[Rfam]
RNA sequence: UCAUCAAGGCUAAAGGGAGAAGAGAGAGAGUACAGCCUUACCAUGUACACACACUCCAAUCUCAACAGUCUCUUAUAUAUGCUGCUGUUACCUGUGAGUGUGAUGAAGGCUGUACCCUCUCUCUUCUUCUCUUAGCUUCUUGAUGC
Numbered sequence: 001u002c003a004u005c006a007a008g009g010c011u012a013a014a015g016g017g018a019g020a021a022g023a024g025a026g027a028g029a030g031u032a033c034a035g036c037c038u039u040a041c042c043a044u045g046u047a048c049a050c051a052c053a054c055u056c057c058a059a060u061c062u063c064a065a066c067a068g069u070c071u072c073u074u075a076u077a078u079a080u081g082c083u084g085c086u087g088u089u090a091c092c093u094g095u096g097a098g099u100g101u102g103a104u105g106a107a108g109g110c111u112g113u114a115c116c117c118u119c120u121c122u123c124u125u126c127u128u129c130u131c132u133u134a135g136c137u138u139c140u141u142g143a144u145g146c
Stems, first nucleotide, its partner, number of pairs: 005142002009136001012133002015130014030115009
Rfam assigns this 146-nucleotide RNA from Sorghum bicolor to the family "MIR529 microRNA precursor family". Pairs were carried over by alignment from the consensus structure, which was predicted with WAR.